[Rfam]
ZMP/ZTP riboswitch aptamer (pfl RNA motif): a 102-nucleotide sequence from Microbacterium sp. ABRD28. The base pairs follow the family's consensus structure, which is taken from published work. Taxonomically the source falls in Microbacterium (Bacteria, Bacillati, Micrococcales, Microbacteriaceae).
Nucleotides: 102
Base pairs, nucleotide, nucleotide: 008048009047010046011045012044015041016040017090018089019088020087021086026037027036028035029034079097080096082094083093
Number, partner (000 for none) and nucleotide at each position: 001000u002000c003000g004000g005000g006000g007000u008048g009047u010046c011045g012044c013000g014000a015041c016040u017090g018089g019088c020087g021086u022000u023000g024000a025000g026037g027036u028035g029034g030000g031000a032000c033000a034029c035028c036027a037026c038000c039000g040016g041015g042000g043000a044012g045011c046010g047009a048008c049000c050000g051000g052000g053000a054000g055000u056000c057000a058000u059000c060000c061000g062000u063000c064000c065000g066000a067000c068000c069000g070000c071000a072000a073000a074000g075000c076000a077000u078000c079097c080096g081000a082094c083093c084000g085000c086021a087020c088019g089018c090017c091000u092000g093083g094082g095000c096080c097079g098000a099000u100000g101000u102000c